[Rfam]
RNA sequence: GGGGCCGACCUGGUUUCGACGUGGGUAACAAAGCAAUGUAGGGCAUACCGAGGACCCGUUAUCUCGUAAAUCAAUGGGACUUUAAGUAACCGCGAACGACGAAACGUACGCACUAGCCGCUUAAAACCGGUUAGCCUCGCGCUAGCUCGCUGAUGGGCUAGGGUUGCAAGACCGUGCGAGGUCAUUACAUCAGAUAAUCCAUAGCGCAGUCACGGCGCUAUAGCCGAAAAUUUAGUGACUCACUGUAGCGAAGCGUGUUCAUCCGCGUCGAUGCGGUUAAAUUAAAAGACUGAACUAAGUAUGUAGAACUAGUUGUAAAGUGCUUGCGGACGCGGGUUCGAUUCCCGCCGGCUCCACCA
Numbered sequence: 001g002g003g004g005c006c007g008a009c010c011u012g013g014u015u016u017c018g019a020c021g022u023g024g025g026u027a028a029c030a031a032a033g034c035a036a037u038g039u040a041g042g043g044c045a046u047a048c049c050g051a052g053g054a055c056c057c058g059u060u061a062u063c064u065c066g067u068a069a070a071u072c073a074a075u076g077g078g079a080c081u082u083u084a085a086g087u088a089a090c091c092g093c094g095a096a097c098g099a100c101g102a103a104a105c106g107u108a109c110g111c112a113c114u115a116g117c118c119g120c121u122u123a124a125a126a127c128c129g130g131u132u133a134g135c136c137u138c139g140c141g142c143u144a145g146c147u148c149g150c151u152g153a154u155g156g157g158c159u160a161g162g163g164u165u166g167c168a169a170g171a172c173c174g175u176g177c178g179a180g181g182u183c184a185u186u187a188c189a190u191c192a193g194a195u196a197a198u199c200c201a202u203a204g205c206g207c208a209g210u211c212a213c214g215g216c217g218c219u220a221u222a223g224c225c226g227a228a229a230a231u232u233u234a235g236u237g238a239c240u241c242a243c244u245g246u247a248g249c250g251a252a253g254c255g256u257g258u259u260c261a262u263c264c265g266c267g268u269c270g271a272u273g274c275g276g277u278u279a280a281a282u283u284a285a286a287a288g289a290c291u292g293a294a295c296u297a298a299g300u301a302u303g304u305a306g307a308a309c310u311a312g313u314u315g316u317a318a319a320g321u322g323c324u325u326g327c328g329g330a331c332g333c334g335g336g337u338u339c340g341a342u343u344c345c346c347g348c349c350g351g352c353u354c355c356a357c358c359a
Stems, first nucleotide, its partner, number of pairs: 001355007020328008033316004039311003044303005049066005055078006113134007135181006142161006150193006199223001201221006208240006242277006249270003253266003257295004262289002332348005
The record is a 359-nucleotide RNA from Candidatus Vallotiella hemipterorum, which matches "transfer-messenger RNA" in Rfam. It scores 213 bits against the family's covariance model. On this family, see Williams and Bartel, RNA 1996: "Phylogenetic analysis of tmRNA secondary structure". Lineage of the source: Bacteria > Pseudomonadati > Betaproteobacteria > Burkholderiaceae > Candidatus Vallotiella.